[Rfam]
RNA sequence: AUCAUUGAUCUGGGUGAGAGAAACGCGUAUCGAUGGGGUUGAGGGCUAUGGUUCACUCGAUUGCCACCACACACCAGUUGUUCUAGCAAUUUGGAGUGGCUAUGGUUUGAAGCCAACGUGCACGAUCGAUACGGGUCGCUCUCACCUAGACCAGAGUUGC
Numbered sequence: 001a002u003c004a005u006u007g008a009u010c011u012g013g014g015u016g017a018g019a020g021a022a023a024c025g026c027g028u029a030u031c032g033a034u035g036g037g038g039u040u041g042a043g044g045g046c047u048a049u050g051g052u053u054c055a056c057u058c059g060a061u062u063g064c065c066a067c068c069a070c071a072c073a074c075c076a077g078u079u080g081u082u083c084u085a086g087c088a089a090u091u092u093g094g095a096g097u098g099g100c101u102a103u104g105g106u107u108u109g110a111a112g113c114c115a116a117c118g119u120g121c122a123c124g125a126u127c128g129a130u131a132c133g134g135g136u137c138g139c140u141c142u143c144a145c146c147u148a149g150a151c152c153a154g155a156g157u158u159g160c
Stems, first nucleotide, its partner, number of pairs: 003156001005154003009150012023136002026133009036123001038121001
Dot-bracket structure: ..(.(((.((((((((((((..((.(((((((((.(.(..................................................................................).).))))))))).))..)))))))))))).))).)....
Source information
The record is a 160-nucleotide RNA from Abrus precatorius, which matches "MIR4416 microRNA precursor family" in Rfam. The match comes from Rfam's covariance-model search (118 bits). The base pairs follow the family's consensus structure, which was predicted with RNAalifold. Gene Ontology terms of the family: miRNA-mediated post-transcriptional gene silencing and RISC complex. The family has 3 seed sequences and 13 matches in Rfam 15.1.